[Rfam]
RNA sequence: CAACGUCUUCAGGGCGGGGUGAAAUUCCCCACCGGCGGUAACACUGCUUGCAGUGCAGCCCGCGAGCGCCUGAGUGGGAACGCAAUUCCUGAGCAGGGUCAGCAGAUCUGGUGCGAUGCCAGAGCCGACGGUCAUAGUCCGGAUGAAAGAAGAUGCGC
Numbered sequence: 001c002a003a004c005g006u007c008u009u010c011a012g013g014g015c016g017g018g019g020u021g022a023a024a025u026u027c028c029c030c031a032c033c034g035g036c037g038g039u040a041a042c043a044c045u046g047c048u049u050g051c052a053g054u055g056c057a058g059c060c061c062g063c064g065a066g067c068g069c070c071u072g073a074g075u076g077g078g079a080a081c082g083c084a085a086u087u088c089c090u091g092a093g094c095a096g097g098g099u100c101a102g103c104a105g106a107u108c109u110g111g112u113g114c115g116a117u118g119c120c121a122g123a124g125c126c127g128a129c130g131g132u133c134a135u136a137g138u139c140c141g142g143a144u145g146a147a148a149g150a151a152g153a154u155g156c157g158c
Base pairs, nucleotide, nucleotide: 004155005154006153007152008151009150010149017029018028019027031138032137033127034126035063036062037061038060058125059124066103067102107123108122109121110120111119129141130140131139